[Rfam]
RNA: Bacillaceae-1 RNA
Organism: Bacillus sp. FJAT-50079
RNA sequence: UUUAUAGGAUCGAAGCCUGAAGCCGCCACAUUGUGUGGCAACUGCUUCGUGACCGAUAUCUCCUUGG
Number, nucleotide and partner (000 for none) at each position: 001u000002u000003u000004a000005u000006a000007g000008g000009a000010u000011c049012g048013a047014a046015g045016c044017c000018u000019g000020a000021a000022g000023c000024c000025g039026c038027c037028a036029c035030a000031u000032u000033g000034u000035g029036u028037g027038g026039c025040a000041a000042c000043u000044g016045c015046u014047u013048c012049g011050u000051g000052a000053c067054c066055g065056a064057u000058a000059u000060c000061u000062c000063c000064u056065u055066g054067g053